[Rfam]
RNA: MIR398 microRNA precursor family
Organism: Gossypium stocksii
RNA sequence: AGGAAUCCGACUGGGUCGACCUUAGAACACAUGCAAUUAUUUUUCAAUUUCGAUAUGAUUCAUUUCAUGUGUUCUCAGGUCGCCCCUGUCGGGUUUCC
Number, nucleotide and partner (000 for none) at each position: 001a000002g000003g000004a000005a000006u000007c092008c091009g000010a000011c088012u000013g086014g085015g000016u000017c082018g081019a080020c000021c000022u000023u000024a075025g074026a073027a072028c071029a070030c069031a068032u067033g000034c000035a000036a000037u000038u000039a000040u000041u000042u000043u000044u000045c000046a000047a000048u000049u000050u000051c000052g000053a000054u000055a000056u000057g000058a000059u000060u000061c000062a000063u000064u000065u000066c000067a032068u031069g030070u029071g028072u027073u026074c025075u024076c000077a000078g000079g000080u019081c018082g017083c000084c000085c014086c013087u000088g011089u000090c000091g008092g007093g000094u000095u000096u000097c000098c000